[Rfam]
RNA sequence: GAGGAACAUCCUAGAGACCUCAGAUGUUCGCUGAUACAAUCUUCCAAAAUAAACCUCUGUAAUUUUCCUGCUUGUAAUUCCGAGUCUCAAAUUACGAGUCUCAAAUUACUGAACAUUUUG
Numbered sequence: 001g002a003g004g005a006a007c008a009u010c011c012u013a014g015a016g017a018c019c020u021c022a023g024a025u026g027u028u029c030g031c032u033g034a035u036a037c038a039a040u041c042u043u044c045c046a047a048a049a050u051a052a053a054c055c056u057c058u059g060u061a062a063u064u065u066u067c068c069u070g071c072u073u074g075u076a077a078u079u080c081c082g083a084g085u086c087u088c089a090a091a092u093u094a095c096g097a098g099u100c101u102c103a104a105a106u107u108a109c110u111g112a113a114c115a116u117u118u119u120g
Stems, first nucleotide, its partner, number of pairs: 001032001005028006056113001058111001070099008079090001